[Rfam]
RNA sequence: UCCUUAGAAACCAAGUGUGGGUGUGGCCUGAAACAUAAACAUGGCGACCCAUCCUUGGUUUCUGAGGUAU
Dot-bracket structure: .((((.((((((.((...((((...(((..............))).))))...)).)))))).))))...

This 70-nucleotide RNA from Channa argus belongs to the Rfam family "mir-551 microRNA precursor family". Lineage of the source: Eukaryota > Opisthokonta > Anabantaria > Channoidei > Channa. Rfam links the family to the GO terms RISC complex and miRNA-mediated post-transcriptional gene silencing. The match comes from Rfam's covariance-model search (62 bits). Pairs were carried over by alignment from the consensus structure, which was predicted with RNAalifold.